[Rfam]
RNA: DUF805b RNA
RNA sequence: CCCGGGGUCGCCGAAAACCGGCAAACAGAGUAGGCA
Dot-bracket structure: .((((....[[[.....))))...........]]].
Numbered sequence: 001c002c003c004g005g006g007g008u009c010g011c012c013g014a015a016a017a018c019c020g021g022c023a024a025a026c027a028g029a030g031u032a033g034g035c036a
Stems, first nucleotide, its partner, number of pairs: 002021004010035003